[Rfam]
RNA sequence: ACGCGAGAAAGGAGGUGGUCCGGCUGAGUAACUACUGGACGCGCGAGGUGGCUGCGCGCUAGCCGCCUGGCCUCAGGCCUUUCGUCGUAAGACGUGUCCGGCCAGGACGGCCGGCGAAUCCCCCGUGGUCACCCGGCCCGCGGGUGCCUGGACUCGUCCCCCGGGCGCACCGCCCGCGGGCCGUACCAC
Numbered sequence: 001a002c003g004c005g006a007g008a009a010a011g012g013a014g015g016u017g018g019u020c021c022g023g024c025u026g027a028g029u030a031a032c033u034a035c036u037g038g039a040c041g042c043g044c045g046a047g048g049u050g051g052c053u054g055c056g057c058g059c060u061a062g063c064c065g066c067c068u069g070g071c072c073u074c075a076g077g078c079c080u081u082u083c084g085u086c087g088u089a090a091g092a093c094g095u096g097u098c099c100g101g102c103c104a105g106g107a108c109g110g111c112c113g114g115c116g117a118a119u120c121c122c123c124c125g126u127g128g129u130c131a132c133c134c135g136g137c138c139c140g141c142g143g144g145u146g147c148c149u150g151g152a153c154u155c156g157u158c159c160c161c162c163g164g165g166c167g168c169a170c171c172g173c174c175c176g177c178g179g180g181c182c183g184u185a186c187c188a189c
Base pairs, nucleotide, nucleotide: 015055016054017053018052019051057116058115059114060113062111063110065108066106067105068104070102071101072100134183135182136181137180138179139178140177141176142175143174144173145172146171148164149163150162151161
Shown here is a 189-nucleotide RNA from Carbonactinospora thermoautotrophica, a member of the family "Actinobacteria sRNA Ms_IGR-5". The organism belongs to Carbonactinospora, within Bacteria.